[Rfam]
RNA sequence: CCCAGGGUUCACACCCUGGGCUAUGAACGACCGCCCCUUCGGGGCU
Numbered sequence: 001c002c003c004a005g006g007g008u009u010c011a012c013a014c015c016c017u018g019g020g021c022u023a024u025g026a027a028c029g030a031c032c033g034c035c036c037c038u039u040c041g042g043g044g045c046u
Base pairs, nucleotide, nucleotide: 001020002019003018004017005016006015007014008013033045034044035043036042037041
Acido-Lenti-1 RNA: a 46-nucleotide sequence from a Gemmataceae bacterium. It scores 54 bits against the family's covariance model. Rfam classes the family as a small RNA. Taxonomically the source falls in Gemmataceae (Bacteria, Pseudomonadati, Planctomycetia, Gemmatales). The family's consensus secondary structure is taken from published work.